[Rfam]
RNA: Bacterial RNase P class A
Organism: Baia soyae
RNA sequence: AAAGUAAACAGGACAAUCGCUGGUGGAGUACCGCAAGGUCCCACGGGAGGAAAGUCCGAGCUCCGCAGGGCAAGAUGCCAGUUAACGGCUGGUGGGGGCAACCCUAAGGCUAGUGCCACAGAAAUGUUAGACCGCCGAUGGAGGUAUAUCCUCACAGGCAAGGAUGCAACGGUGCGGUAAGAGCGCACCAGCAACAUGGAGACAUGUUGGCUAGGUAAACCCCAUCUGGAGCAAGACCUGAUAGGAGAUCAACACGCAAGUGUAGCUGUUGCCCGCAGUGAUUUCGGGUAGGUCGCUUGAGCCUACUAGCGAUGGUAGGCCUAGACAGAUGAUUGUCACUCCAACAGUGGGAGAUGUUACAAGCCAUCGAUUACCACUAGGAGAACAGAACUCGGCUUAUUGUUUGCUUUCCGU
Numbered sequence: 001a002a003a004g005u006a007a008a009c010a011g012g013a014c015a016a017u018c019g020c021u022g023g024u025g026g027a028g029u030a031c032c033g034c035a036a037g038g039u040c041c042c043a044c045g046g047g048a049g050g051a052a053a054g055u056c057c058g059a060g061c062u063c064c065g066c067a068g069g070g071c072a073a074g075a076u077g078c079c080a081g082u083u084a085a086c087g088g089c090u091g092g093u094g095g096g097g098g099c100a101a102c103c104c105u106a107a108g109g110c111u112a113g114u115g116c117c118a119c120a121g122a123a124a125u126g127u128u129a130g131a132c133c134g135c136c137g138a139u140g141g142a143g144g145u146a147u148a149u150c151c152u153c154a155c156a157g158g159c160a161a162g163g164a165u166g167c168a169a170c171g172g173u174g175c176g177g178u179a180a181g182a183g184c185g186c187a188c189c190a191g192c193a194a195c196a197u198g199g200a201g202a203c204a205u206g207u208u209g210g211c212u213a214g215g216u217a218a219a220c221c222c223c224a225u226c227u228g229g230a231g232c233a234a235g236a237c238c239u240g241a242u243a244g245g246a247g248a249u250c251a252a253c254a255c256g257c258a259a260g261u262g263u264a265g266c267u268g269u270u271g272c273c274c275g276c277a278g279u280g281a282u283u284u285c286g287g288g289u290a291g292g293u294c295g296c297u298u299g300a301g302c303c304u305a306c307u308a309g310c311g312a313u314g315g316u317a318g319g320c321c322u323a324g325a326c327a328g329a330u331g332a333u334u335g336u337c338a339c340u341c342c343a344a345c346a347g348u349g350g351g352a353g354a355u356g357u358u359a360c361a362a363g364c365c366a367u368c369g370a371u372u373a374c375c376a377c378u379a380g381g382a383g384a385a386c387a388g389a390a391c392u393c394g395g396c397u398u399a400u401u402g403u404u405u406g407c408u409u410u411c412c413g414u
Base pairs, nucleotide, nucleotide: 001410002409003408004407005406006405007404008403009402010401011400012337013336014335015334016333017332018331020047021046023044024043025042026041028039052398053397054396056395057394058393059392060391061231062230063229064228068274069273070272071271073227074226075225076224077223078092079091080090081089082088093107094105095104096103097102108222109221113220114219115216116215117214132163133162134159135158136157139154140153141152171189172188173187174186175185176184191211192209193208194207195206196205197204198203235294236293237292238291245285246284247283248282249281250280265279266278267277268276269275301320302319303318304317305316306315307314308313